[Rfam]
RNA sequence: GGCUGGUCUGAAGGUAGUUAUUUAAUGGGUUGUUCACAGUUGCAGACUGAACUCUACUUUUCCCCUUCUCAUGACUACACUUGACUAGUUUUAU
Number, nucleotide and partner (000 for none) at each position: 001g090002g089003c088004u087005g086006g085007u084008c083009u000010g082011a081012a000013g000014g078015u077016a000017g072018u071019u000020a069021u000022u000023u000024a000025a000026u056027g055028g054029g000030u000031u051032g000033u000034u000035c000036a000037c000038a000039g000040u000041u000042g000043c000044a000045g000046a000047c000048u000049g000050a000051a031052c000053u000054c028055u027056a026057c000058u000059u000060u000061u000062c000063c000064c000065c000066u000067u000068c000069u020070c000071a018072u017073g000074a000075c000076u000077a015078c014079a000080c000081u011082u010083g008084a007085c006086u005087a004088g003089u002090u001091u000092u000093a000094u000
RNA: Y RNA